A member of the RNA family "Plastid-rpl16 group II-D1 intron" from Phtheirospermum japonicum, 43 nucleotides long.

[Rfam]
RNA sequence: AAGAGCCUCGAGCCAAGACUAAGAAGGUUGACUCAAGAAUAAA
Dot-bracket structure: ......((.(((.(((...........))).))).))......
Numbered sequence: 001a002a003g004a005g006c007c008u009c010g011a012g013c014c015a016a017g018a019c020u021a022a023g024a025a026g027g028u029u030g031a032c033u034c035a036a037g038a039a040u041a042a043a
Stems, first nucleotide, its partner, number of pairs: 007037002010034003014030003
The base pairs follow the family's consensus structure, which was predicted with LocARNA. The organism belongs to Phtheirospermum, within Eukaryota. Rfam links the family to the GO term Group II intron splicing. Plastid-rpl16 is a non-coding RNA (ncRNA) recognised in plastids. It was recognised in and intronic region of a ribosome rpl16 gene. On this family, see Richter et al., Plant Commun 2023: "Retrograde signaling in plants: A critical review focusing on the GUN pathway and beyond".